[Rfam]
RNA sequence: AUCGUUCAUCUCCAACCGUGACUGACUGUCCAAUUGACCUCAGUCCUGGAGACGGAAGUAGGGAGUCAUCCCGAAGGAACGCGCC
Numbered sequence: 001a002u003c004g005u006u007c008a009u010c011u012c013c014a015a016c017c018g019u020g021a022c023u024g025a026c027u028g029u030c031c032a033a034u035u036g037a038c039c040u041c042a043g044u045c046c047u048g049g050a051g052a053c054g055g056a057a058g059u060a061g062g063g064a065g066u067c068a069u070c071c072c073g074a075a076g077g078a079a080c081g082c083g084c085c
Stems, first nucleotide, its partner, number of pairs: 003081005009052005055082001061072003
A member of the RNA family "Glutamine riboswitch aptamer (glnA leader)" from Cyanothece sp. PCC 7425, 85 nucleotides long. The literature on the family includes a 2011 paper in RNA Biol by Ames and Breaker, "Bacterial aptamers that selectively bind glutamine". Lineage of the source: Bacteria > Cyanophyceae > Gomontiellales > Cyanothecaceae > Cyanothece.